A member of the RNA family "RT-2 RNA", 154 nucleotides long. Rfam's curators put it in the seed alignment.
RNA sequence: AGAAUAUAUUUAUUCUUAAAGUUGAUUAAUGAUGUUAUAUGCUCGGACGCUUCUUGCAUGGUUAAGAGUUUGUUCAUUUAUCUUAAUUUCAUGGGUAUAUACUAUGUAAGUAUUUAUAAAUGAAUAUUAUUUCUUAUACAUUAAUCUUGGAAAA
Numbered sequence: 001a002g003a004a005u006a007u008a009u010u011u012a013u014u015c016u017u018a019a020a021g022u023u024g025a026u027u028a029a030u031g032a033u034g035u036u037a038u039a040u041g042c043u044c045g046g047a048c049g050c051u052u053c054u055u056g057c058a059u060g061g062u063u064a065a066g067a068g069u070u071u072g073u074u075c076a077u078u079u080a081u082c083u084u085a086a087u088u089u090c091a092u093g094g095g096u097a098u099a100u101a102c103u104a105u106g107u108a109a110g111u112a113u114u115u116a117u118a119a120a121u122g123a124a125u126a127u128u129a130u131u132u133c134u135u136a137u138a139c140a141u142u143a144a145u146c147u148u149g150g151a152a153a154a
Stems, first nucleotide, its partner, number of pairs: 001016006024146008033138001034102001036101009049057002060088007106137005112132001113124002